[Rfam]
Background:
Rfam assigns this 86-nucleotide sequence from Nostoc minutum to the family "Photosynthesis regulatory RNA1". For this family Rfam cites "The small regulatory RNA SyR1/PsrR1 controls photosynthetic functions in cyanobacteria" (Georg et al., Plant Cell, 2014). The match comes from Rfam's covariance-model search (42 bits). The organism belongs to Nostoc minutum, within Bacteria. About the family: Formerly known as Syr1 discovered in Synechocystis sp PCC 6803, is a regulatory factor controlling photosynthetic functions. Gene Ontology terms of the family: regulation of photosynthesis and regulation of translation. Pairs were carried over by alignment from the consensus structure, which was predicted with CMfinder. By type it is a small RNA. Rfam 15.1 lists 92 matches to the family in 57 species.
RNA sequence: AAGAUUUUUGCGCCUUCGGUAUCGGUAUCUCAAGCUCGACUAUUGGGCUUCUCCCCCGAACCUCGGUACUUAACGCCGGGGUUUUU
Numbered sequence: 001a002a003g004a005u006u007u008u009u010g011c012g013c014c015u016u017c018g019g020u021a022u023c024g025g026u027a028u029c030u031c032a033a034g035c036u037c038g039a040c041u042a043u044u045g046g047g048c049u050u051c052u053c054c055c056c057c058g059a060a061c062c063u064c065g066g067u068a069c070u071u072a073a074c075g076c077c078g079g080g081g082u083u084u085u086u
Stems, first nucleotide, its partner, number of pairs: 060082008